RNA sequence: AAUAAUUCGACAGGGGCGACCUGAGAACACAUGUUUGAGAUACAAAUCAUCAAACUAAAAAAGAAAAAUGACAACAUGUGAUCUCAAGUUGCCCCUAUUGAAUACUU
Numbered sequence: 001a002a003u004a005a006u007u008c009g010a011c012a013g014g015g016g017c018g019a020c021c022u023g024a025g026a027a028c029a030c031a032u033g034u035u036u037g038a039g040a041u042a043c044a045a046a047u048c049a050u051c052a053a054a055c056u057a058a059a060a061a062a063g064a065a066a067a068a069u070g071a072c073a074a075c076a077u078g079u080g081a082u083c084u085c086a087a088g089u090u091g092c093c094c095c096u097a098u099u100g101a102a103u104a105c106u107u
Base pairs, nucleotide, nucleotide: 007101008100012096013095014094016092017091018090019089023085024084025083026082028080029079030078031077032076
This 107-nucleotide RNA sequence from Solanum commersonii belongs to the Rfam family "MIR398 microRNA precursor family". The family's consensus secondary structure was predicted with WAR. The family has 14 seed sequences and 627 matches in Rfam 15.1.